[Rfam]
RNA sequence: UUGUUGGUAGGUUAUAUCCUCACCUGUUUCUCCUUCGGGAGAGUGGAUAUAUGAUGAUUGGAGUUCGCAUGACACGUGAUUAGUGUCUCCGCGACGAUUGGGGAGCUGACAACACCCCAAUUGUUCCUAUCUGAU
Numbered sequence: 001u002u003g004u005u006g007g008u009a010g011g012u013u014a015u016a017u018c019c020u021c022a023c024c025u026g027u028u029u030c031u032c033c034u035u036c037g038g039g040a041g042a043g044u045g046g047a048u049a050u051a052u053g054a055u056g057a058u059u060g061g062a063g064u065u066c067g068c069a070u071g072a073c074a075c076g077u078g079a080u081u082a083g084u085g086u087c088u089c090c091g092c093g094a095c096g097a098u099u100g101g102g103g104a105g106c107u108g109a110c111a112a113c114a115c116c117c118c119a120a121u122u123g124u125u126c127c128u129a130u131c132u133g134a135u
Base pairs, nucleotide, nucleotide: 024046025045026044028043029042030041031040032039033038071089072088074086075085076084077082093124097121098120099119100118101117102116
Shown here is a 135-nucleotide RNA from Ornithorhynchus anatinus, a member of the family "U8 small nucleolar RNA". Rfam links the family to the GO terms nucleolus and RNA processing. Lineage of the source: Eukaryota > Mammalia > Monotremata > Ornithorhynchidae > Ornithorhynchus. It is annotated as a C/D-box small nucleolar RNA.